This 140-nucleotide RNA from Paenibacillus validus belongs to the Rfam family "c-di-AMP riboswitch aptamer (ydaO/yuaA leader)". NCBI's taxonomy places the organism under Bacteria, Bacilli, Caryophanales, Paenibacillaceae, Paenibacillus. Gene Ontology terms of the family: regulation of gene expression and cyclic-di-AMP binding. The match comes from Rfam's covariance-model search (78 bits).
[Rfam]
RNA sequence: CAUAAACGUACGCUUAAUUUCCGGUUUUCGAAUCGGAAAGCGGGGGAACCAAUGUAAUUGGGGCGAAUCAUGUAACGAUGUAGGGAACCAUCUUUCCCGAGCCCGGCAGCUAACCUCGUCAGCAGGAGAUGGGUCAAGUU
Numbered sequence: 001c002a003u004a005a006a007c008g009u010a011c012g013c014u015u016a017a018u019u020u021c022c023g024g025u026u027u028u029c030g031a032a033u034c035g036g037a038a039a040g041c042g043g044g045g046g047a048a049c050c051a052a053u054g055u056a057a058u059u060g061g062g063g064c065g066a067a068u069c070a071u072g073u074a075a076c077g078a079u080g081u082a083g084g085g086a087a088c089c090a091u092c093u094u095u096c097c098c099g100a101g102c103c104c105g106g107c108a109g110c111u112a113a114c115c116u117c118g119u120c121a122g123c124a125g126g127a128g129a130u131g132g133g134u135c136a137a138g139u140u
Stems, first nucleotide, its partner, number of pairs: 012123003018039009040119006050060002061104003069080003083098004